[Rfam]
RNA sequence: ACGUCGGCCUAGCAAUGUGGAUACUUCGUUUAUAACUCAAAAGAUUGAUUAUUACGGUUAGGGCGGGGAUCAUCUCUCUCGCGAGAGAUCGAUUCCGCCUAUCCAGCAUCCACAUGCGCCAUCCGACGUUUUU
Numbered sequence: 001a002c003g004u005c006g007g008c009c010u011a012g013c014a015a016u017g018u019g020g021a022u023a024c025u026u027c028g029u030u031u032a033u034a035a036c037u038c039a040a041a042a043g044a045u046u047g048a049u050u051a052u053u054a055c056g057g058u059u060a061g062g063g064c065g066g067g068g069a070u071c072a073u074c075u076c077u078c079u080c081g082c083g084a085g086a087g088a089u090c091g092a093u094u095c096c097g098c099c100u101a102u103c104c105a106g107c108a109u110c111c112a113c114a115u116g117c118g119c120c121a122u123c124c125g126a127c128g129u130u131u132u133u
Base pairs, nucleotide, nucleotide: 002128003127004126005125006124007123012117013116014115017113018112019111020110026092027091028090
Record summary
Shown here is a 133-nucleotide RNA from Strongylocentrotus purpuratus, a member of the family "Vault RNA". Pairs were carried over by alignment from the consensus structure, which is taken from published work. The match comes from Rfam's covariance-model search (44 bits). The organism belongs to Strongylocentrotus, within Eukaryota. This family of RNAs are found as part of the enigmatic vault ribonucleoprotein complex. The complex consists of a major vault protein (MVP), two minor vault proteins (VPARP and TEP1), and several small untranslated RNA molecules. It has been suggested that the vault complex is involved in drug resistance.